The record is an 89-nucleotide RNA sequence from Capsicum baccatum, which matches "Small nucleolar RNA R16" in Rfam.
Its family is annotated with nucleolus and RNA processing in the Gene Ontology.
The family's consensus secondary structure was predicted with PFOLD.
The match comes from Rfam's covariance-model search (56 bits).
Rfam classes the family as a C/D-box small nucleolar RNA.
The source organism's lineage runs through Eukaryota, Streptophytina, Magnoliopsida, eudicotyledons and Capsicum.
Rfam 15.1 lists 884 matches to the family in 222 species.
The literature on the family includes a 2002 paper in Mol Cell Biol by Galardi et al., "Purified box C/D snoRNPs are able to reproduce site-specific 2'-O-methylation of target RNA in vitro".
RNA sequence: GGAGGCAAAUGAUGUUAAACAAAAUCUUAUACUACACACUGAAAUUAAAUGAAGAAAUUAAAACUCUCAAUUAAUUUUCUGAUGCCUCC
Number, nucleotide and partner (000 for none) at each position: 001g000002g000003a087004g086005g085006c084007a083008a000009a000010u000011g000012a000013u000014g000015u000016u000017a000018a000019a000020c000021a000022a000023a000024a000025u000026c000027u000028u000029a000030u000031a000032c000033u000034a000035c000036a000037c000038a000039c000040u000041g000042a000043a000044a000045u000046u000047a000048a000049a000050u000051g000052a000053a000054g000055a000056a000057a000058u000059u000060a000061a000062a000063a000064c000065u000066c000067u000068c000069a000070a000071u000072u000073a000074a000075u000076u000077u000078u000079c000080u000081g000082a000083u007084g006085c005086c004087u003088c000089c000